About this RNA:
Shown here is a 349-nucleotide sequence from Candidatus Odyssella acanthamoebae, a member of the family "Alphaproteobacteria transfer-messenger RNA". By type it is a non-coding RNA gene. Lineage of the source: Bacteria > Pseudomonadati > Pseudomonadota > Candidatus Paracaedibacteraceae > Candidatus Odyssella.
RNA sequence: CCCCUUUUAUUUUUCAGAAAAAAGGCCUAUUUUAUAAGUGUCAGGUAACUGACUAUGACGAUAAACGAUUUAUGGAAUAAGCGUUGCGGACCCGGGGGCGGUACCCGGCGUCUCCACCAUUUAUGGGGACGAAAUAGGAUCGACGCGCGUAGUAAAGGUAAAUUUUUCGUUCGGUGAGCACCGCCGUUAUCGGGCAAAUUUAAUAAAUGCAAACAAUAACUUUGCAUCGGCUAAUAAAAACCGUUUUGGAGCAGUAGCUUCUGCGGCUGCCUAAUAUCUUAGCUAUUGCGGAUAUUAAGCACUAAAGUUAGUCGCGGUUCGGGGGCACCGGGCAACAGAAGCCCCCACU
Dot-bracket structure: .......................................(((((....)))))...(((((.....(((((((........(((.(((...(((((.......)))))(((((((.........)))))))............))))))........)))))))..)))))((((.....[[)))).....]].........................................................................................................................[[[[..((((((]]]]..........))))))...
A search with the family's covariance model found it, with a score of 267 bits.